[Rfam]
mir-194 microRNA precursor family: an 81-nucleotide RNA sequence from Neogobius melanostomus. The base pairs follow the family's consensus structure, which was predicted with RNAalifold. The organism belongs to Neogobius, within Eukaryota. It scores 83 bits against the family's covariance model. The family has 46 seed sequences and 936 matches in Rfam 15.1.
RNA sequence: UGGUGCUGGCUGGAUGUAACAGCAACUCCAUGUGGAAGAUGUCCAGGUUCCAGUGGAGGUGCUGUUACCUGCAGAGAGACA
Numbered sequence: 001u002g003g004u005g006c007u008g009g010c011u012g013g014a015u016g017u018a019a020c021a022g023c024a025a026c027u028c029c030a031u032g033u034g035g036a037a038g039a040u041g042u043c044c045a046g047g048u049u050c051c052a053g054u055g056g057a058g059g060u061g062c063u064g065u066u067a068c069c070u071g072c073a074g075a076g077a078g079a080c081a
Base pairs, nucleotide, nucleotide: 010074011073012072016068017067018066019065020064021063022062023061026058027057028056029055030054031053033052034051035050